[Rfam]
RNA sequence: AUUUAUUGGAAUCUACUGUGUACCUUGAGGUGUAAACACCUCAAGGGACACAGUAGAUUCCAAUAAAU
Numbered sequence: 001a002u003u004u005a006u007u008g009g010a011a012u013c014u015a016c017u018g019u020g021u022a023c024c025u026u027g028a029g030g031u032g033u034a035a036a037c038a039c040c041u042c043a044a045g046g047g048a049c050a051c052a053g054u055a056g057a058u059u060c061c062a063a064u065a066a067a068u
Stems, first nucleotide, its partner, number of pairs: 003066004009060008018051003023046008